[Rfam]
RNA sequence: UGGACUCCACACGACUGGCGCGGGUGGGUGACCACCGGGGAGUGACGCACGGAGCAUCGACCGCCUGGGUGCUCCCC
Numbered sequence: 001u002g003g004a005c006u007c008c009a010c011a012c013g014a015c016u017g018g019c020g021c022g023g024g025u026g027g028g029u030g031a032c033c034a035c036c037g038g039g040g041a042g043u044g045a046c047g048c049a050c051g052g053a054g055c056a057u058c059g060a061c062c063g064c065c066u067g068g069g070u071g072c073u074c075c076c077c
Stems, first nucleotide, its partner, number of pairs: 003046001010044003015039002017065004024035004054072005